Nucleotides: 356
Base pairs, nucleotide, nucleotide: 007159008158009157010156011155012154013153014152015151016150043102044101045100046099047098059092060091061090062089063088064087065086066085076146077145078144080142081141082139083138084137162279163278164277165276166275167274168264169263170262171261172260173259174258175257176256181249182248183245184244185243186242187241188240189239197218198217199216200215201214203213204212205211206210220232221231222230223229291348292347293346294345296343297342298341299340300339302337307334308333309332310331311330313328314327315326
Number, partner (000 for none) and nucleotide at each position: 001000u002000u003000g004000g005000c006000g007159c008158g009157g010156c011155a012154g013153g014152g015151u016150a017000a018000c019000g020000u021000u022000u023000c024000u025000a026000a027000c028000c029000c030000u031000a032000g033000g034000u035000g036000g037000c038000u039000c040000g041000g042000u043102g044101c045100u046099c047098c048000u049000u050000g051000u052000c053000c054000u055000c056000u057000g058000c059092g060091u061090u062089u063088g064087c065086u066085g067000u068000u069000u070000u071000u072000g073000a074000a075000c076146u077145c078144u079000g080142g081141c082139u083138u084137u085066c086065a087064g088063c089062g090061a091060a092059c093000u094000u095000c096000a097000a098047g099046g100045a101044g102043c103000c104000u105000c106000c107000c108000g109000u110000c111000g112000a113000c114000g115000g116000c117000u118000g119000c120000g121000u122000u123000g124000u125000g126000g127000g128000c129000a130000a131000g132000a133000a134000a135000a136000a137084a138083a139082a140000a141081g142080c143000a144078a145077g146076a147000g148000a149000a150016u151015a152014c153013c154012c155011u156010g157009u158008c159007g160000g161000g162279c163278u164277c165276a166275a167274c168264c169263u170262c171261c172260c173259c174258g175257g176256c177000u178000c179000u180000c181249g182248c183245c184244g185243c186242g187241c188240c189239c190000c191000g192000g193000g194000g195000g196000c197218c198217g199216u200215g201214g202000a203213c204212g205211g206210c207000u208000c209000g210206g211205c212204c213203g214201c215200c216199g217198c218197g219000a220232a221231g222230g223229g224000c225000u226000c227000u228000g229223c230222c231221c232220u233000g234000c235000a236000g237000c238000g239189g240188g241187g242186c243185g244184c245183g246000a247000u248182g249181c250000c251000g252000g253000c254000g255000c256176g257175c258174c259173g260172g261171g262170g263169g264168g265000c266000g267000u268000c269000g270000g271000a272000c273000a274167g275166u276165u277164g278163a279162g280000c281000a282000g283000a284000g285000a286000a287000a288000c289000g290000u291348g292347a293346g294345c295000g296343c297342g298341g299340g300339u301000c302337c303000g304000g305000u306000g307334c308333u309332g310331a311330g312000g313328g314327c315326c316000g317000u318000c319000g320000g321000c322000a323000g324000u325000g326315g327314g328313u329000c330311c331310u332309c333308g334307g335000c336000g337302g338000a339300g340299u341298c342297c343296g344000c345294g346293c347292u348291c349000a350000g351000a352000c353000a354000c355000g356000c

The record is a 356-nucleotide sequence from Denticeps clupeoides, which matches "Vertebrate telomerase RNA" in Rfam. The match comes from Rfam's covariance-model search (100 bits). Its family is annotated with telomerase activity, telomere maintenance via telomerase and telomerase catalytic core complex in the Gene Ontology. Rfam describes the family as follows. Telomerase is a ribonucleoprotein reverse transcriptase that synthesises telomeric DNA. Telomerase RNAs differ greatly in sequence and structure between vertebrates, ciliates and yeasts, but they share a 5' pseudoknot structure close to the template sequence. Vertebrate telomerase RNAs have a 3' H/ACA snoRNA-like domain. The base pairs follow the family's consensus structure, which is taken from published work. Rfam classes the family as a non-coding RNA gene. The literature on the family includes a 2005 paper in J Biol Chem by Fragnet et al., "Comparative functional study of the viral telomerase RNA based on natural mutations".